Shown here is a 181-nucleotide RNA sequence from Anaerotruncus sp. AF02-27, a member of the family "Lysine riboswitch aptamer".
NCBI's taxonomy places the organism under Bacteria, Bacillati, Bacillota, Clostridia, Anaerotruncus.
Its family is annotated with lysine biosynthetic process in the Gene Ontology.
RNA sequence: CAAACCGGUAGAGGCGCGUCUUUCAUCAGUAACAGGGACUUCAGACUGCCAGGUCGUAAAAAGCCGUGUGAAAGGGUCAGACGCCGAAGGUUGGCGCCGUUGGCGGGCGUACUUCCUGGGCACACAGUCGAAAAGGCGUGUGACUGUCAUCAUUGGACUAUGAUGGAGGGCUAUGGGUGGU
Numbered sequence: 001c002a003a004a005c006c007g008g009u010a011g012a013g014g015c016g017c018g019u020c021u022u023u024c025a026u027c028a029g030u031a032a033c034a035g036g037g038a039c040u041u042c043a044g045a046c047u048g049c050c051a052g053g054u055c056g057u058a059a060a061a062a063g064c065c066g067u068g069u070g071a072a073a074g075g076g077u078c079a080g081a082c083g084c085c086g087a088a089g090g091u092u093g094g095c096g097c098c099g100u101u102g103g104c105g106g107g108c109g110u111a112c113u114u115c116c117u118g119g120g121c122a123c124a125c126a127g128u129c130g131a132a133a134a135g136g137c138g139u140g141u142g143a144c145u146g147u148c149a150u151c152a153u154u155g156g157a158c159u160a161u162g163a164u165g166g167a168g169g170g171c172u173a174u175g176g177g178u179g180g181u
Stems, first nucleotide, its partner, number of pairs: 006176001008174004016084006024076001032069003036065002088117003093112001094110005118145002121142005128135001147166007